[Rfam]
RNA sequence: AAUUAGAAAAGUAAGUAUAUGUUCGAAUAAACGUGCGGCUGAAGAGGGCCUUAAUUAGUCCUAAAACGGCCUGAGGUAGAGGGGUUUUUGUCGGUAGGUGUGAGGACUUCUUCCUCGGGAAUCCGACACUACCCAAUCGUAGGGACGGCUGGGUGUCUUUUGAAGAUUUCCCUUUCACGAAA
Numbered sequence: 001a002a003u004u005a006g007a008a009a010a011g012u013a014a015g016u017a018u019a020u021g022u023u024c025g026a027a028u029a030a031a032c033g034u035g036c037g038g039c040u041g042a043a044g045a046g047g048g049c050c051u052u053a054a055u056u057a058g059u060c061c062u063a064a065a066a067c068g069g070c071c072u073g074a075g076g077u078a079g080a081g082g083g084g085u086u087u088u089u090g091u092c093g094g095u096a097g098g099u100g101u102g103a104g105g106a107c108u109u110c111u112u113c114c115u116c117g118g119g120a121a122u123c124c125g126a127c128a129c130u131a132c133c134c135a136a137u138c139g140u141a142g143g144g145a146c147g148g149c150u151g152g153g154u155g156u157c158u159u160u161u162g163a164a165g166a167u168u169u170c171c172c173u174u175u176c177a178c179g180a181a182a
Stems, first nucleotide, its partner, number of pairs: 037050003055181002058178002079176002082172003090127005099119001101117006129155001131154005
RNA: R2 RNA element
Organism: Agrilus planipennis